The record is a 65-nucleotide sequence from Bagarius yarrelli, which matches "mir-375 microRNA precursor family" in Rfam.

[Rfam]
RNA sequence: CUUCACGUUGAGCCACGCGUACAAUACGUGAUCAUUCAGUUUUGUUCGUUCGGCUCGCGUUACGC
Numbered sequence: 001c002u003u004c005a006c007g008u009u010g011a012g013c014c015a016c017g018c019g020u021a022c023a024a025u026a027c028g029u030g031a032u033c034a035u036u037c038a039g040u041u042u043u044g045u046u047c048g049u050u051c052g053g054c055u056c057g058c059g060u061u062a063c064g065c
Stems, first nucleotide, its partner, number of pairs: 001064001003062001005060003009057006018048002021045004026040002